[Rfam]
RNA sequence: UCUGGAACUCAAGAUAUGGACUGAACAUUGAACAAUGUUUCAGCUGCAGGAUAAAUUUAGACUUUUUCGUUGUUGCUGUAAUUUAGACUUGGAAAUGGCCUUUUUUAAAUCUUGGACUCCACAUGAAAGUUUUAGGCCUAUGUAUUAUCUUUCCAUC
Numbered sequence: 001u002c003u004g005g006a007a008c009u010c011a012a013g014a015u016a017u018g019g020a021c022u023g024a025a026c027a028u029u030g031a032a033c034a035a036u037g038u039u040u041c042a043g044c045u046g047c048a049g050g051a052u053a054a055a056u057u058u059a060g061a062c063u064u065u066u067u068c069g070u071u072g073u074u075g076c077u078g079u080a081a082u083u084u085a086g087a088c089u090u091g092g093a094a095a096u097g098g099c100c101u102u103u104u105u106u107a108a109a110u111c112u113u114g115g116a117c118u119c120c121a122c123a124u125g126a127a128a129g130u131u132u133u134a135g136g137c138c139u140a141u142g143u144a145u146u147a148u149c150u151u152u153c154c155a156u157c
Stems, first nucleotide, its partner, number of pairs: 003155005009147001011146002014143006021135005027130003035124003043118001045116001048113005054106002059101002062098002068092001072088003
RNA: MIR2912 microRNA precursor family